This 74-nucleotide RNA sequence from Haemonchus placei belongs to the Rfam family "mir-5928 microRNA precursor family". The base pairs follow the family's consensus structure, which was predicted with RNAalifold.
RNA sequence: GGCCCAAAUUUGAAGUAGAGUAGAUUAGGGGAUCAUUUGACUCUACUAAACUACUUUACUUCGAGUUUGUGCCC
Numbered sequence: 001g002g003c004c005c006a007a008a009u010u011u012g013a014a015g016u017a018g019a020g021u022a023g024a025u026u027a028g029g030g031g032a033u034c035a036u037u038u039g040a041c042u043c044u045a046c047u048a049a050a051c052u053a054c055u056u057u058a059c060u061u062c063g064a065g066u067u068u069g070u071g072c073c074c
Stems, first nucleotide, its partner, number of pairs: 001073003005069005011063013025049004029044001031042001033040002